Background:
This 48-nucleotide sequence belongs to the Rfam family "DUF3800-XI RNA". Rfam describes the family as follows. Actinobacteria, Firmicutes, Proteobacteria, Spirochaetes (1 example). The family's RNA type in Rfam is small RNA.
RNA sequence: GGAGCUGGUCGAAAGACCCUGAUCCACCGAGCGGCGGGGGAAACCCCC
Numbered sequence: 001g002g003a004g005c006u007g008g009u010c011g012a013a014a015g016a017c018c019c020u021g022a023u024c025c026a027c028c029g030a031g032c033g034g035c036g037g038g039g040g041a042a043a044c045c046c047c048c
Base pairs, nucleotide, nucleotide: 001025002024004023006021007018008017009016010015